[Rfam]
This 58-nucleotide sequence from Caenorhabditis elegans belongs to the Rfam family "mir-1829 microRNA precursor family".
RNA sequence: AAGCGAAAUUCAAGAUGGUUGUAAAACAUCGAGUACUACAACCACUGGAAUUUCUCUA
Numbered sequence: 001a002a003g004c005g006a007a008a009u010u011c012a013a014g015a016u017g018g019u020u021g022u023a024a025a026a027c028a029u030c031g032a033g034u035a036c037u038a039c040a041a042c043c044a045c046u047g048g049a050a051u052u053u054c055u056c057u058a
Stems, first nucleotide, its partner, number of pairs: 002057002005054003009050003013046002016044008026034002

The source organism's lineage runs through Eukaryota, Chromadorea, Rhabditina, Rhabditidae and Caenorhabditis. It is one of the family's seed sequences.